The family of this 51-nucleotide RNA sequence from Menispermum dauricum is "Plastid-ccsA-ndhD-1 3UTR RNA".
Lineage of the source: Eukaryota > Viridiplantae > Streptophytina > Menispermeae > Menispermum.
Plastid-ccsA-ndhD-1 is a non-coding RNA (ncRNA) recognised in plastids. It was found in the three prime untranslated region (3UTR) of ccsA and ndhD genes, its 3UTR location suggests a role in transcript maturation.

[Rfam]
RNA sequence: UGAGAACCAUUUGAAUCAAGUCAAAGUAGUGAUUCAAAUGGUUCUCAAAAA
Number, nucleotide and partner (000 for none) at each position: 001u047002g046003a045004g044005a043006a042007c041008c040009a039010u038011u037012u036013g035014a034015a033016u032017c031018a030019a000020g000021u000022c000023a000024a000025a000026g000027u000028a000029g000030u018031g017032a016033u015034u014035c013036a012037a011038a010039u009040g008041g007042u006043u005044c004045u003046c002047a001048a000049a000050a000051a000